The family of this 274-nucleotide sequence from Microtus ochrogaster is "Mason-Pfizer monkey virus packaging signal".
From the family's description: This family represents a group of sequences that are related to the Mason-Pfizer monkey virus (MPMV) packaging signal. The packaging signal is located in the 5' UTR and is required for specific RNA encapsidation.
NCBI's taxonomy places the organism under Eukaryota, Chordata, Gnathostomata, Muroidea, Microtus.
For this family Rfam cites "Mutational analysis of the predicted secondary RNA structure of the Mason-Pfizer monkey virus packaging signal" (Mustafa et al., Virus Res, 2004).

RNA sequence: UGGCACCUAAUAUGGGGCUUGAGUGUGGGGAAAUUAGUGAAUAAUGCUGUUCAGAGAUGCAGGCAUAAAGUGAAGUACAGUUAAGAGGAAGAGAAACACAGGAACCUGCUGUGUCUUCUUAAGCUUGGCAAGUAGACAGCGAUUAUGGGACAGGCAAUUACUUAGCAUGAAAUGUUUAUUAGUGAAUUAAGACAUGCUUUAAAGGUACAAUGGGAAAAGGUUAAAAUCAAACAGUCAUGUGAAUUCUUUGACUAUAUUAAAGAUGUUUGUCCCU
Numbered sequence: 001u002g003g004c005a006c007c008u009a010a011u012a013u014g015g016g017g018c019u020u021g022a023g024u025g026u027g028g029g030g031a032a033a034u035u036a037g038u039g040a041a042u043a044a045u046g047c048u049g050u051u052c053a054g055a056g057a058u059g060c061a062g063g064c065a066u067a068a069a070g071u072g073a074a075g076u077a078c079a080g081u082u083a084a085g086a087g088g089a090a091g092a093g094a095a096a097c098a099c100a101g102g103a104a105c106c107u108g109c110u111g112u113g114u115c116u117u118c119u120u121a122a123g124c125u126u127g128g129c130a131a132g133u134a135g136a137c138a139g140c141g142a143u144u145a146u147g148g149g150a151c152a153g154g155c156a157a158u159u160a161c162u163u164a165g166c167a168u169g170a171a172a173u174g175u176u177u178a179u180u181a182g183u184g185a186a187u188u189a190a191g192a193c194a195u196g197c198u199u200u201a202a203a204g205g206u207a208c209a210a211u212g213g214g215a216a217a218a219g220g221u222u223a224a225a226a227u228c229a230a231a232c233a234g235u236c237a238u239g240u241g242a243a244u245u246c247u248u249u250g251a252c253u254a255u256a257u258u259a260a261a262g263a264u265g266u267u268u269g270u271c272c273c274u
Stems, first nucleotide, its partner, number of pairs: 006030003012026003035049004085129001086125002092120001093118002097113005135151001140147002158201001160199001162196001208250003212247004219236004259274001262271003